[Rfam]
RNA sequence: CAUGGAUUAGUGCUGUGAUGAAGCUUUUGUGGACUAGAGUUUCUGAUACUGGGGUUUCGAUCCCAGAAUUGAAGACAAACCCUUGGCUAUCUGAGCUCCUUC
Numbered sequence: 001c002a003u004g005g006a007u008u009a010g011u012g013c014u015g016u017g018a019u020g021a022a023g024c025u026u027u028u029g030u031g032g033a034c035u036a037g038a039g040u041u042u043c044u045g046a047u048a049c050u051g052g053g054g055u056u057u058c059g060a061u062c063c064c065a066g067a068a069u070u071g072a073a074g075a076c077a078a079a080c081c082c083u084u085g086g087c088u089a090u091c092u093g094a095g096c097u098c099c100u101u102c
Stems, first nucleotide, its partner, number of pairs: 002101001004099003008095001040074004047067001049066005
Rfam assigns this 102-nucleotide RNA sequence from Tetracentron sinense to the family "Small nucleolar RNA Z157/R69/R10". A search with the family's covariance model found it, with a score of 61 bits. By type it is a C/D-box small nucleolar RNA. Taxonomically the source falls in Tetracentron (Eukaryota, Streptophytina, Euphyllophyta, Mesangiospermae). Gene Ontology terms of the family: nucleolus and RNA processing.